[Rfam]
RNA sequence: UUCUCACCACAUACUCGUGAGCGGCUUGACACCAGCAUUCGUCUUCGGACGCAAUAACGGAGUCGCCGUUCAGUUUGACUUCGAGGAGCCAUCAAAUCCCCAUGAUGUCAAUUAUCUAGUCAACGGGUUUGAGAUCGAUUAAGCACCUGCAACCUCGAUGUUUUUGAGCCCUUCACGGGAGCUCGACGGAGAGACGGGUGUCUUAAGUCACUAUAUUCCAAAUCUUUUCGCAGAUGCCGUCGGCGCAUGAUGUUAAAGACUCACCAUGGUGAAUACAGUU
Numbered sequence: 001u002u003c004u005c006a007c008c009a010c011a012u013a014c015u016c017g018u019g020a021g022c023g024g025c026u027u028g029a030c031a032c033c034a035g036c037a038u039u040c041g042u043c044u045u046c047g048g049a050c051g052c053a054a055u056a057a058c059g060g061a062g063u064c065g066c067c068g069u070u071c072a073g074u075u076u077g078a079c080u081u082c083g084a085g086g087a088g089c090c091a092u093c094a095a096a097u098c099c100c101c102a103u104g105a106u107g108u109c110a111a112u113u114a115u116c117u118a119g120u121c122a123a124c125g126g127g128u129u130u131g132a133g134a135u136c137g138a139u140u141a142a143g144c145a146c147c148u149g150c151a152a153c154c155u156c157g158a159u160g161u162u163u164u165u166g167a168g169c170c171c172u173u174c175a176c177g178g179g180a181g182c183u184c185g186a187c188g189g190a191g192a193g194a195c196g197g198g199u200g201u202c203u204u205a206a207g208u209c210a211c212u213a214u215a216u217u218c219c220a221a222a223u224c225u226u227u228u229c230g231c232a233g234a235u236g237c238c239g240u241c242g243g244c245g246c247a248u249g250a251u252g253u254u255a256a257a258g259a260c261u262c263a264c265c266a267u268g269g270u271g272a273a274u275a276c277a278g279u280u
Stems, first nucleotide, its partner, number of pairs: 011130001013128006019071006027065004032060002038053001040051004076122005085109002088106001090104001142201001145199005160187001164186006170179002208272007223259005230253003235245004